This 168-nucleotide RNA from Erwinia sp. 198 belongs to the Rfam family "SraG RNA". The base pairs follow the family's consensus structure, which was predicted with PFOLD. By type it is a small RNA. From the family's description: This RNA was discovered in E. coli during a large scale screen. Evidence was found for specific cleavage of this RNA.
[Rfam]
RNA sequence: CUUCAUUGCAUCCUCGCGACUAAUGACAACCCUAAUCCCUUAUGGGACAAAGCCUCUCAUUAGCCGCGCGAAUCUCUGCAACUGAAGAUCACACUCAGCAACAAUACAAUAGUUUGGCCUGGAUUGCUGCCGCCCGACUGAAAAAAGGGGCCAUAAAGGCCCCUUUUU
Numbered sequence: 001c002u003u004c005a006u007u008g009c010a011u012c013c014u015c016g017c018g019a020c021u022a023a024u025g026a027c028a029a030c031c032c033u034a035a036u037c038c039c040u041u042a043u044g045g046g047a048c049a050a051a052g053c054c055u056c057u058c059a060u061u062a063g064c065c066g067c068g069c070g071a072a073u074c075u076c077u078g079c080a081a082c083u084g085a086a087g088a089u090c091a092c093a094c095u096c097a098g099c100a101a102c103a104a105u106a107c108a109a110u111a112g113u114u115u116g117g118c119c120u121g122g123a124u125u126g127c128u129g130c131c132g133c134c135c136g137a138c139u140g141a142a143a144a145a146a147g148g149g150g151c152c153a154u155a156a157a158g159g160c161c162c163c164u165u166u167u168u
Stems, first nucleotide, its partner, number of pairs: 001087004008079003015070004020063007094121001147163006